Description
tRNA: a 74-nucleotide RNA sequence from Desulfuribacillus stibiiarsenatis. A search with the family's covariance model found it, with a score of 73 bits. Rfam classes the family as a transfer RNA.
Nucleotides: 074
Stems, first nucleotide, its partner, number of pairs: 001073007010026004028044005050066005
Number, partner (000 for none) and nucleotide at each position: 001073g002072u003071g004070u005069c006068a007067g008000u009000a010026g011025c012024u013023c014000a015000g016000c017000u018000g019000g020000a021000u022000a023013g024012a025011g026010c027000a028044a029043c030042g031041g032040c033000c034000u035000u036000c037000u038000a039000a040032g041031c042030c043029g044028u045000a046000g047000g048000u049000c050066g051065g052064g053063g054062g055000u056000u057000c058000g059000a060000a061000u062054c063053c064052c065051u066050c067007c068006u069005g070004a071003c072002a073001c074000g